Rfam assigns this 170-nucleotide RNA from Leersia perrieri to the family "MIR2118 microRNA precursor family". Rfam links the family to the GO terms miRNA-mediated post-transcriptional gene silencing and RISC complex. NCBI's taxonomy places the organism under Eukaryota, Viridiplantae, Streptophyta, commelinids, Leersia.
RNA sequence: GCCAGGAAGAGGAAGAAAGAGAGAAUCAAAGAAUUGUAGGAAUGAGAACAUGAAGGAAAGCUUAAGCACUAGUUUCACCUCUAUCAUUGGAGGUGGAAUCUUAGUUUCAUGUUUUCCUGAUGCCUCUCAUUCCUAUGGUUCUUAGGUGCUCCUUCCUCUCCCUCUAGGCU
Numbered sequence: 001g002c003c004a005g006g007a008a009g010a011g012g013a014a015g016a017a018a019g020a021g022a023g024a025a026u027c028a029a030a031g032a033a034u035u036g037u038a039g040g041a042a043u044g045a046g047a048a049c050a051u052g053a054a055g056g057a058a059a060g061c062u063u064a065a066g067c068a069c070u071a072g073u074u075u076c077a078c079c080u081c082u083a084u085c086a087u088u089g090g091a092g093g094u095g096g097a098a099u100c101u102u103a104g105u106u107u108c109a110u111g112u113u114u115u116c117c118u119g120a121u122g123c124c125u126c127u128c129a130u131u132c133c134u135a136u137g138g139u140u141c142u143u144a145g146g147u148g149c150u151c152c153u154u155c156c157u158c159u160c161c162c163u164c165u166a167g168g169c170u
Stems, first nucleotide, its partner, number of pairs: 009161001011159003015155003021151003026146002029143007037135011049122003053118001055117007